RNA sequence: CUCCGUAAAGGGUAAACUCAUCGCAAGGUGGGGACACAAAGCCUACGGGUCCCACAGGGACGGCCGGGUUGUCGGA
Numbered sequence: 001c002u003c004c005g006u007a008a009a010g011g012g013u014a015a016a017c018u019c020a021u022c023g024c025a026a027g028g029u030g031g032g033g034a035c036a037c038a039a040a041g042c043c044u045a046c047g048g049g050u051c052c053c054a055c056a057g058g059g060a061c062g063g064c065c066g067g068g069u070u071g072u073c074g075g076a
Base pairs, nucleotide, nucleotide: 012037013036017032018031019030020029021028022027040070041069042068043067046066047065048064049061050060051059052058053057